[Rfam]
tpke11: a 77-nucleotide RNA from Pluralibacter gergoviae.
Rfam links the family to the GO term response to temperature stimulus.
In Yersinia located in ICR upstream dnaJ (chaperone)gene.
It scores 71 bits against the family's covariance model.

RNA sequence: UGCAGGGUAAUUAACUGGCACGGGCGUCGGAGUUUACUCCACGCCCGUGCUCGUAUGUUAAGGGCAAUCAAAAAAGA
Dot-bracket structure: ..(((.........)))(((((((((..((.......))..)))))))))...........................